[Rfam]
RNA sequence: GGAGUCGGACAGGUCGUCGCUGCGGUGCAUGUCGCCGUGGAGGAAAGUCCGGGCUUCGCAGGGCAGGACGCUGGGUAACGCCCAGCAGGAGCGAUCCUGGGAAAGUGCCACAGAAAACAGACCGCCCGCCGGUUUCCGGCAGGUAAGGGUGAAACGGUGGAGUAAGAGACCACCAGCGGGUGCGGUGACGCAUCCGGCUAGGUAAACCCCGUCCGAAGCAAGACCAAAUAGGGAAGUCGGCCGGCCCGGCCAUCAGACUUCCGGGUAGGUUGCUUGAGGCGUGCGGUAACGCCCGCCCCAGAUGAAUGACGACCGCCCCGCAAGGGGAGACAAAACCCGGCUUAUCGUCCGGCUCCACAU
Dot-bracket structure: ((((((((((((((((((.((((((((.....))))))))....[[[.[[[[[((((...[[[[.((((((((((.....)))))(((((....)))))((...(((((............(((((.(((((...))))).)))..)).......(((((.........))))).(((((((((....)))))))).)..)))..)))))))))))))...((((......((((((.((((.]]]])))).....)))))).....))))......((((.(((....))).))))..........))))))).....................]]]]]]]].).))))))))))....
RNA: Bacterial RNase P class A